The family of this 118-nucleotide RNA from Leekyejoonella antrihumi is "SAM (S-adenosyl methionine) riboswitch aptamer". SAM-IV is a mRNA element that regulates gene expression via direct sensing of S-adenosylmethionine (SAM or AdoMet). SAM-IV riboswitches share conserved nucleotide positions with the previously described SAM-I riboswitches sequence analysis and molecular recognition experiments suggest that SAM-I and SAM-IV riboswitches share similar ligand binding sites, but have different scaffolds. The family's consensus secondary structure is taken from published work.
RNA sequence: GGUCAUGAGUACCAGCGACAAGCCCCGGCUCGCUGGUCGGCAACCCUCCACCGCGGUGGGGUGCCCCGGGUGAAGACCAGGCCGACGGAUGCAGAUCAUCCGGCGGCAAGCGCGGACG
Dot-bracket structure: ((((....(.((((((....((......)).)))))))(((..(((.((.....))..))).))).........))))..((((.(((((.......))))).))))...........

The match comes from Rfam's covariance-model search (114 bits). The literature on the family includes a 2008 paper in RNA by Weinberg et al., "The aptamer core of SAM-IV riboswitches mimics the ligand-binding site of SAM-I riboswitches". Gene Ontology terms of the family: S-adenosylmethionine metabolic process and regulation of gene expression.